A member of the RNA family "ZMP/ZTP riboswitch aptamer (pfl RNA motif)" from Rhodoferax sp. OV413, 166 nucleotides long.
The source organism's lineage runs through Bacteria, Pseudomonadati, Betaproteobacteria, Comamonadaceae and Rhodoferax.
The family's consensus secondary structure is taken from published work.

RNA sequence: AGCACCGUACGCAACUGGCGAUAGGCGUGACCCCUGGAUUUGAUUCAGGGUGCUCACGCUGACGUGGACCACCGCAGCGGCCUUCUUAGCAAGGUCAUGCGGGCAACCACUGGGAAGCGUGCCGCCAAAUCCGUUUGGCGUUCAGCCGUUCGCCUGGGCAGCACUU
Numbered sequence: 001a002g003c004a005c006c007g008u009a010c011g012c013a014a015c016u017g018g019c020g021a022u023a024g025g026c027g028u029g030a031c032c033c034c035u036g037g038a039u040u041u042g043a044u045u046c047a048g049g050g051u052g053c054u055c056a057c058g059c060u061g062a063c064g065u066g067g068a069c070c071a072c073c074g075c076a077g078c079g080g081c082c083u084u085c086u087u088a089g090c091a092a093g094g095u096c097a098u099g100c101g102g103g104c105a106a107c108c109a110c111u112g113g114g115a116a117g118c119g120u121g122c123c124g125c126c127a128a129a130u131c132c133g134u135u136u137g138g139c140g141u142u143c144a145g146c147c148g149u150u151c152g153c154c155u156g157g158g159c160a161g162c163a164c165u166u
Base pairs, nucleotide, nucleotide: 005124007122008121009120010119011118012117015114016113017154018153019152020151021150064110065109066108067107143161145159146158147157